[Rfam]
RNA sequence: UCGAAGCUCCAUCUACAAAUGGAUAAAUUUUCGUUCUUAGUUUAGUGUAUACGAGUUUUUGAAAGUAAAGGGGCAGUACCUGUUUCUUGAUAGACCAAGAAAUAGGUUAUUGCUCCUUU
Numbered sequence: 001u002c003g004a005a006g007c008u009c010c011a012u013c014u015a016c017a018a019a020u021g022g023a024u025a026a027a028u029u030u031u032c033g034u035u036c037u038u039a040g041u042u043u044a045g046u047g048u049a050u051a052c053g054a055g056u057u058u059u060u061g062a063a064a065g066u067a068a069a070g071g072g073g074c075a076g077u078a079c080c081u082g083u084u085u086c087u088u089g090a091u092a093g094a095c096c097a098a099g100a101a102a103u104a105g106g107u108u109a110u111u112g113c114u115c116c117u118u119u
Base pairs, nucleotide, nucleotide: 008023009022010021011020012019067119068118069117070116071115072114073113074112075111076110077109078108081104082103084101085100086099087098088097

The record is a 119-nucleotide RNA from Basella alba, which matches "Plastid-psbA-1 3UTR RNA" in Rfam. For this family Rfam cites "Retrograde signaling in plants: A critical review focusing on the GUN pathway and beyond" (Richter et al., Plant Commun, 2023). Taxonomically the source falls in Basella (Eukaryota, Streptophyta, Streptophytina, Embryophyta). The family's RNA type in Rfam is cis-regulatory element. Pairs were carried over by alignment from the consensus structure, which was predicted with LocARNA. Rfam describes the family as follows. Plastid psbA-1 is a non-coding RNA (ncRNA) present in plastids.